[Rfam]
RNA sequence: UUGCCCACCUUGAGCUAAUUGUGCUUCACGUGGCCAGAACAGAGGGGUAAAGCAGUCAUCUCUCUAAAACCCGGGGCAGAUAAACUACCCUCUGUUCCGGAUCCUGUCGUGAGAGACAUUC
Numbered sequence: 001u002u003g004c005c006c007a008c009c010u011u012g013a014g015c016u017a018a019u020u021g022u023g024c025u026u027c028a029c030g031u032g033g034c035c036a037g038a039a040c041a042g043a044g045g046g047g048u049a050a051a052g053c054a055g056u057c058a059u060c061u062c063u064c065u066a067a068a069a070c071c072c073g074g075g076g077c078a079g080a081u082a083a084a085c086u087a088c089c090c091u092c093u094g095u096u097c098c099g100g101a102u103c104c105u106g107u108c109g110u111g112a113g114a115g116a117c118a119u120u121c
Base pairs, nucleotide, nucleotide: 002049003048004047005046006045009042010041015037016036019030056115060113061112062111064109071100072099073098074097075096076095077094079092080091
Dot-bracket structure: .(((((..((....((..(..........).....))...))..)))))......(...(((.(......(((((((.((..........)).)))))))........).))).)......